Shown here is a 140-nucleotide sequence from Aotus nancymaae, a member of the family "Small Cajal body specific RNA 21". scaRNAs are a specific class of small nuclear RNAs which localise to the Cajal bodies and guide the modification of RNA polymerase II transcribed spliceosomal RNAs U1, U2, U4, U5 and U12. A search with the family's covariance model found it, with a score of 132 bits. The family's consensus secondary structure was predicted with RNAalifold. Rfam links the family to the GO terms nucleolus, RNA processing and Cajal body. The organism belongs to Aotus, within Eukaryota.
RNA sequence: UGGCUCAGUUUCCUAGGGGGUGGGCCCAGCCUACUCUACCUCCCCUCAGCUAAGCCUACAGUAGAGGGGCCAGGCAUCCUCCCCCAUGGGAGAGGCAUUUGAGUAAGGAGCCUUGCCUCAGGUGUCCUAGCCUCACAUUU
Numbered sequence: 001u002g003g004c005u006c007a008g009u010u011u012c013c014u015a016g017g018g019g020g021u022g023g024g025c026c027c028a029g030c031c032u033a034c035u036c037u038a039c040c041u042c043c044c045c046u047c048a049g050c051u052a053a054g055c056c057u058a059c060a061g062u063a064g065a066g067g068g069g070c071c072a073g074g075c076a077u078c079c080u081c082c083c084c085c086a087u088g089g090g091a092g093a094g095g096c097a098u099u100u101g102a103g104u105a106a107g108g109a110g111c112c113u114u115g116c117c118u119c120a121g122g123u124g125u126c127c128u129a130g131c132c133u134c135a136c137a138u139u140u
Stems, first nucleotide, its partner, number of pairs: 002056004007051001016043009066134005072128003078121001088113003